Shown here is a 71-nucleotide RNA sequence, a member of the family "RAGATH-18 RNA".
The sequence is in the family's curated seed alignment.
Actinobacteria, Firmicutes, Fusobacteria, Thermotogae (1 example).
Rfam classes the family as a small RNA.
The base pairs follow the family's consensus structure, which is taken from published work.
RNA sequence: CUUGUGGAGUGUUAUAUCAAAUGUUAGUAGUAUGCUGAAAAGCUAUGAGAACAGACACGUUGAAGCAAGAA
Numbered sequence: 001c002u003u004g005u006g007g008a009g010u011g012u013u014a015u016a017u018c019a020a021a022u023g024u025u026a027g028u029a030g031u032a033u034g035c036u037g038a039a040a041a042g043c044u045a046u047g048a049g050a051a052c053a054g055a056c057a058c059g060u061u062g063a064a065g066c067a068a069g070a071a
Stems, first nucleotide, its partner, number of pairs: 001069005009058005022053003030046003035042002